[Rfam]
RNA sequence: UAGACCUUCUAGCUGCGUCGCGUUUAUUACAAAGGAUAAGAUUUUGUCUAGUGUAUCGAAUCGUGAAACCCAAAGUAGCAAUACCCCAUGUCUUGCUUUAUCAAGACAUGGUGUAUUGCUACUUU
Numbered sequence: 001u002a003g004a005c006c007u008u009c010u011a012g013c014u015g016c017g018u019c020g021c022g023u024u025u026a027u028u029a030c031a032a033a034g035g036a037u038a039a040g041a042u043u044u045u046g047u048c049u050a051g052u053g054u055a056u057c058g059a060a061u062c063g064u065g066a067a068a069c070c071c072a073a074a075g076u077a078g079c080a081a082u083a084c085c086c087c088a089u090g091u092c093u094u095g096c097u098u099u100a101u102c103a104a105g106a107c108a109u110g111g112u113g114u115a116u117u118g119c120u121a122c123u124u125u
Stems, first nucleotide, its partner, number of pairs: 005035004072125013086111003090107005
Rfam assigns this 125-nucleotide RNA sequence from Musa balbisiana to the family "Plastid-psbA-1 3UTR RNA". Rfam classes the family as a cis-regulatory element. A reference for the family is Richter et al. (2023), "Retrograde signaling in plants: A critical review focusing on the GUN pathway and beyond", Plant Commun. The family's consensus secondary structure was predicted with LocARNA.